[Rfam]
RNA sequence: AAAGAAGAAAUACCGCCCUCUUGAUAGAACAAGAGGGCGGUAUUGCUUUUUUUUUA
Numbered sequence: 001a002a003a004g005a006a007g008a009a010a011u012a013c014c015g016c017c018c019u020c021u022u023g024a025u026a027g028a029a030c031a032a033g034a035g036g037g038c039g040g041u042a043u044u045g046c047u048u049u050u051u052u053u054u055u056a
Stems, first nucleotide, its partner, number of pairs: 001052007009044005018035006
RNA: Plastid-psbA-3 3UTR RNA